Rfam assigns this 131-nucleotide sequence from Colius striatus to the family "Small nucleolar RNA SNORA44". The literature on the family includes a 2001 paper in EMBO J by Huttenhofer et al., "RNomics: an experimental approach that identifies 201 candidates for novel, small, non-messenger RNAs in mouse". Rfam's curators write: ACA44 is a member of the H/ACA class of snoRNA that guide the sites of modification of uridines to pseudouridines. Its Rfam clan is "SNORA44 clan".

RNA sequence: CUGCAUGUUUAUCCAAGAGCUGUGGUUCGAUCCCAUAGCUGCAGCUCUCCAACAACAUGCCAGAGCAACGGGAAGGUCUUUGACUGCUGGGCCUCCUUUGCCUCUUGCUGUCACUCGCCCCUCCUACACAC
Dot-bracket structure: ............(....(((((((.........)))))))...)..........................(((.((.........((.(((.........)).).....)).......)).))).......